Overview: The family of this 108-nucleotide RNA from Kosakonia cowanii is "ArcZ RNA". On this family, see Mandin and Gottesman, EMBO J 2010: "Integrating anaerobic/aerobic sensing and the general stress response through the ArcZ small RNA". By type it is a small RNA. About the family: This RNA was discovered in E. coli during a large scale screen.
[Rfam]
Nucleotides: 108
Stems, first nucleotide, its partner, number of pairs: 022059007073097003080094004
Number, partner (000 for none) and nucleotide at each position: 001000g002000u003000g004000u005000g006000g007000u008000c009000g010000a011000a012000u013000u014000u015000u016000a017000a018000u019000a020000g021000a022059c023058u024057g025056c026055g027054c028053c029000c030000u031000u032000g033000c034000a035000a036000u037000u038000a039000a040000a041000a042000c043000c044000a045000a046000a047000a048000a049000u050000u051000a052000c053028g054027g055026c056025g057024c058023a059022g060000c061000c062000a063000c064000g065000g066000u067000u068000u069000c070000c071000c072000u073097g074096g075095u076000g077000u078000u079000g080094g081093c082092g083091c084000a085000g086000u087000a088000u089000u090000c091083g092082c093081g094080c095075a096074c097073c098000c099000c100000g101000g102000u103000u104000a105000a106000u107000c108000c